[Rfam]
RNA sequence: CUGACGGUCCGGGCCCCUCUGGCGAACGCUGCCGGCGCGUUCGUGAUGUCGGACCUUUCUU
Numbered sequence: 001c002u003g004a005c006g007g008u009c010c011g012g013g014c015c016c017c018u019c020u021g022g023c024g025a026a027c028g029c030u031g032c033c034g035g036c037g038c039g040u041u042c043g044u045g046a047u048g049u050c051g052g053a054c055c056u057u058u059c060u061u
Stems, first nucleotide, its partner, number of pairs: 006055007022044008
Overview:
Rfam assigns this 61-nucleotide RNA sequence from Stakelama tenebrarum to the family "terC RNA". The family's RNA type in Rfam is cis-regulatory element. A search with the family's covariance model found it, with a score of 64 bits.